[Rfam]
RNA: Small nucleolar RNA SNORD95
RNA sequence: AGGGCAGUGGUGACACCAACAUGCCAUCUCAGUGCCCGUCCUGGAAACCAGAGGCUGCUGCUGCUG
Numbered sequence: 001a002g003g004g005c006a007g008u009g010g011u012g013a014c015a016c017c018a019a020c021a022u023g024c025c026a027u028c029u030c031a032g033u034g035c036c037c038g039u040c041c042u043g044g045a046a047a048c049c050a051g052a053g054g055c056u057g058c059u060g061c062u063g064c065u066g
Base pairs, nucleotide, nucleotide: 005066006065007064008063